[Rfam]
The record is a 380-nucleotide sequence from Coprothermobacter proteolyticus, which matches "Bacterial RNase P class A" in Rfam. Gene Ontology terms of the family: ribonuclease P activity, tRNA processing and dimeric ribonuclease P complex. Pairs were carried over by alignment from the consensus structure, which is taken from published work. It is annotated as a ribozyme.
RNA sequence: AAGAGUAGACGAGGCAGCCGCAACCAAAAGGUUGAGGAAAGUCCGAGCUCCACAGAGCAGGAUGCUGGGUAACACCCAGUGAGGGCGACCUCAAGGAGAGUGCCACAGAAAACAAACCGCCUACCCAAAUGUUUGGGUAGGUAAGGGUGAAAAGGCGGGGUAAGAGCCCACCGCAGCACUGGCGACAGUGCUGGCACGGUAAACCCCAUCCGGAGCAAGGCCAAGCAGCCAGCUGUGACCCUGCUCGGCGAGCUGGCGGGUAGGCCGCUGGAGCUUGCUGGCAACAGCAAGCCAAGAUAAAUGGUUGCCACCCACCAAAACUUUUGAAGGCAACGCGGUUUUGGUGGGAACAGAACUCGGCUUACCGUCUACUCGUAGUU
Numbered sequence: 001a002a003g004a005g006u007a008g009a010c011g012a013g014g015c016a017g018c019c020g021c022a023a024c025c026a027a028a029a030g031g032u033u034g035a036g037g038a039a040a041g042u043c044c045g046a047g048c049u050c051c052a053c054a055g056a057g058c059a060g061g062a063u064g065c066u067g068g069g070u071a072a073c074a075c076c077c078a079g080u081g082a083g084g085g086c087g088a089c090c091u092c093a094a095g096g097a098g099a100g101u102g103c104c105a106c107a108g109a110a111a112a113c114a115a116a117c118c119g120c121c122u123a124c125c126c127a128a129a130u131g132u133u134u135g136g137g138u139a140g141g142u143a144a145g146g147g148u149g150a151a152a153a154g155g156c157g158g159g160g161u162a163a164g165a166g167c168c169c170a171c172c173g174c175a176g177c178a179c180u181g182g183c184g185a186c187a188g189u190g191c192u193g194g195c196a197c198g199g200u201a202a203a204c205c206c207c208a209u210c211c212g213g214a215g216c217a218a219g220g221c222c223a224a225g226c227a228g229c230c231a232g233c234u235g236u237g238a239c240c241c242u243g244c245u246c247g248g249c250g251a252g253c254u255g256g257c258g259g260g261u262a263g264g265c266c267g268c269u270g271g272a273g274c275u276u277g278c279u280g281g282c283a284a285c286a287g288c289a290a291g292c293c294a295a296g297a298u299a300a301a302u303g304g305u306u307g308c309c310a311c312c313c314a315c316c317a318a319a320a321c322u323u324u325u326g327a328a329g330g331c332a333a334c335g336c337g338g339u340u341u342u343g344g345u346g347g348g349a350a351c352a353g354a355a356c357u358c359g360g361c362u363u364a365c366c367g368u369c370u371a372c373u374c375g376u377a378g379u380u
Base pairs, nucleotide, nucleotide: 001376003374004373005372006371007370008369009368010367011365013309014308015307016306017305018304019303021034022033023032024031025030039363040362041361043360044359045358046357047356048215049214050213051212055246056245057244058243060211061210062209063208064207065079066078067077068076069075080094081092082091083090084089095206096205100204101203102200103199104198117146118145119142120141121140122139123138124137125136126135127134154172155171157169158168159167173195174193175192176191177190178189179188180187181186219266220265221264222263228257229256230255231254232253233252240248241247273292274291275290276289277288278287279286280285